This 53-nucleotide RNA sequence from Faecalibacterium prausnitzii belongs to the Rfam family "RAGATH-5 RNA".
RNA sequence: ACGGAGACCCCAGCAGGGCCGCACCGCUCAAAGCGGCCCCGCCCCACUUCCCA
Numbered sequence: 001a002c003g004g005a006g007a008c009c010c011c012a013g014c015a016g017g018g019c020c021g022c023a024c025c026g027c028u029c030a031a032a033g034c035g036g037c038c039c040c041g042c043c044c045c046a047c048u049u050c051c052c053a
Stems, first nucleotide, its partner, number of pairs: 002026003013042001016039003020035003
It is annotated as a ribozyme. Gene Ontology term of the family: catalytic activity.